sucA-II RNA: a 215-nucleotide sequence from Pseudomonas cremoricolorata.
RNA sequence: CCGAAGCGCGGGUGGUGAGCCCGCGCCGAGGUGAAACCCGAGCAAGGGCUCACAAAGCCCCGGCUCGUACCUAUGAAGAUAUGAGACCAGCAGGGGCUUCCGGGCUGGUACCCGGAAAAUCUGCAGGAUCUUCGGUGACGUGGUUCGGCCGCGGUAUUGGGCUUCCUACGUUUGCUGAGGCGCUUGCCGAUCAGUCCCCUAACCGAGGGUGACCA
Numbered sequence: 001c002c003g004a005a006g007c008g009c010g011g012g013u014g015g016u017g018a019g020c021c022c023g024c025g026c027c028g029a030g031g032u033g034a035a036a037c038c039c040g041a042g043c044a045a046g047g048g049c050u051c052a053c054a055a056a057g058c059c060c061c062g063g064c065u066c067g068u069a070c071c072u073a074u075g076a077a078g079a080u081a082u083g084a085g086a087c088c089a090g091c092a093g094g095g096g097c098u099u100c101c102g103g104g105c106u107g108g109u110a111c112c113c114g115g116a117a118a119a120u121c122u123g124c125a126g127g128a129u130c131u132u133c134g135g136u137g138a139c140g141u142g143g144u145u146c147g148g149c150c151g152c153g154g155u156a157u158u159g160g161g162c163u164u165c166c167u168a169c170g171u172u173u174g175c176u177g178a179g180g181c182g183c184u185u186g187c188c189g190a191u192c193a194g195u196c197c198c199c200u201a202a203c204c205g206a207g208g209g210u211g212a213c214c215a
Stems, first nucleotide, its partner, number of pairs: 001031002006026008040066004046061002048058003092200005097194002099116006119191003123187003127183001129180003134176005139170005147163004
The match comes from Rfam's covariance-model search (169 bits).
Rfam classes the family as a cis-regulatory element.